[Rfam]
RNA: MIR2629 microRNA precursor family
Organism: Medicago truncatula
RNA sequence: UACCGAAGUUUUCCUCAGUAGUUAACUGCAGCCGAUUUUUUCAAACUUCAGCAGUUAACUGCCGAAGGGCAU
Numbered sequence: 001u002a003c004c005g006a007a008g009u010u011u012u013c014c015u016c017a018g019u020a021g022u023u024a025a026c027u028g029c030a031g032c033c034g035a036u037u038u039u040u041u042c043a044a045a046c047u048u049c050a051g052c053a054g055u056u057a058a059c060u061g062c063c064g065a066a067g068g069g070c071a072u
Stems, first nucleotide, its partner, number of pairs: 012068002015065002018062012